[Rfam]
RNA: Betaproteobacteria toxic small RNA
RNA sequence: CGUCUCCUCCAAUUUUUCUCCGAGAAUUGGAUUCCGGCCCAGGCGAACGCGCUGGGCCUUUUUUU
Numbered sequence: 001c002g003u004c005u006c007c008u009c010c011a012a013u014u015u016u017u018c019u020c021c022g023a024g025a026a027u028u029g030g031a032u033u034c035c036g037g038c039c040c041a042g043g044c045g046a047a048c049g050c051g052c053u054g055g056g057c058c059u060u061u062u063u064u065u
Stems, first nucleotide, its partner, number of pairs: 008031008036058007